[Rfam]
RNA: mir-8830 microRNA precursor family
RNA sequence: CAGGACCCGCUUCCCUCGUCGCUGAGGCAGGACCGGCUUCGCUCAUGGCCGCGGCAGGACCGGCUUCCCUCGUCGCUGAGGCAGGACCGACUUCC
Numbered sequence: 001c002a003g004g005a006c007c008c009g010c011u012u013c014c015c016u017c018g019u020c021g022c023u024g025a026g027g028c029a030g031g032a033c034c035g036g037c038u039u040c041g042c043u044c045a046u047g048g049c050c051g052c053g054g055c056a057g058g059a060c061c062g063g064c065u066u067c068c069c070u071c072g073u074c075g076c077u078g079a080g081g082c083a084g085g086a087c088c089g090a091c092u093u094c095c
Stems, first nucleotide, its partner, number of pairs: 003092002007089001009087001011085002014081005019075001021073001023072005029066003033063003037058003042053001044051001